Bacterial small signal recognition particle RNA: a 97-nucleotide sequence from Reinekea thalattae.
[Rfam]
RNA sequence: UGCCGGUCCCCUCGCAACGAACGGUCGUAAACCCCGCCAGGCCCGGAAGGGAGCAACGGUAGCGGCUAUCUCGUGUGCCGGGGUGUGGCUGGUGGGU
Numbered sequence: 001u002g003c004c005g006g007u008c009c010c011c012u013c014g015c016a017a018c019g020a021a022c023g024g025u026c027g028u029a030a031a032c033c034c035c036g037c038c039a040g041g042c043c044c045g046g047a048a049g050g051g052a053g054c055a056a057c058g059g060u061a062g063c064g065g066c067u068a069u070c071u072c073g074u075g076u077g078c079c080g081g082g083g084u085g086u087g088g089c090u091g092g093u094g095g096g097u
Stems, first nucleotide, its partner, number of pairs: 004091005010083005015075001017074004023067006034059003042051003
It scores 72 bits against the family's covariance model. The base pairs follow the family's consensus structure, which is taken from published work. The organism belongs to Reinekea, within Bacteria. The family's RNA type in Rfam is non-coding RNA gene.